The family of this 79-nucleotide sequence from Merluccius polli is "mir-16 microRNA precursor family". The family is grouped with related families in Rfam's "mir-15 clan". The base pairs follow the family's consensus structure, which was predicted with PFOLD. Gene Ontology terms of the family: RISC complex and miRNA-mediated post-transcriptional gene silencing. The organism belongs to Merluccius, within Eukaryota.
[Rfam]
RNA sequence: UAUAUACACUAACACAACAUGAAAUACUAGUGUAUAUAUAUUAUAUAUACACCAGUAUUUCAUGUUGUGUUAGUAUAUA
Numbered sequence: 001u002a003u004a005u006a007c008a009c010u011a012a013c014a015c016a017a018c019a020u021g022a023a024a025u026a027c028u029a030g031u032g033u034a035u036a037u038a039u040a041u042u043a044u045a046u047a048u049a050c051a052c053c054a055g056u057a058u059u060u061c062a063u064g065u066u067g068u069g070u071u072a073g074u075a076u077a078u079a
Stems, first nucleotide, its partner, number of pairs: 001079003005075003010072009021061001023059006030052001